Shown here is a 117-nucleotide sequence from Ornithorhynchus anatinus, a member of the family "U5 spliceosomal RNA". The match comes from Rfam's covariance-model search (68 bits). The family's RNA type in Rfam is spliceosomal small nuclear RNA. Rfam's curators write: U5 RNA is a component of both types of known spliceosome. Lineage of the source: Eukaryota > Metazoa > Euteleostomi > Ornithorhynchidae > Ornithorhynchus.
RNA sequence: UUCCCCCCGCUUUUCUUCAAAGCGCAUAGACCUUUCGCCUUUUACUAAAGAUUUCCGUGGAGAGGCGGAACGGAGAGACUGAAGGUAAUUUUUGCAGGCCCCCUCGUAGUGGAGCCU
Numbered sequence: 001u002u003c004c005c006c007c008c009g010c011u012u013u014u015c016u017u018c019a020a021a022g023c024g025c026a027u028a029g030a031c032c033u034u035u036c037g038c039c040u041u042u043u044a045c046u047a048a049a050g051a052u053u054u055c056c057g058u059g060g061a062g063a064g065g066c067g068g069a070a071c072g073g074a075g076a077g078a079c080u081g082a083a084g085g086u087a088a089u090u091u092u093u094g095c096a097g098g099c100c101c102c103c104u105c106g107u108a109g110u111g112g113a114g115c116c117u
Base pairs, nucleotide, nucleotide: 002078003077005075007068008067009066012065013064014063015062016061017060018059019058028054029053030052032050033049034048035047096117098116100114102112103111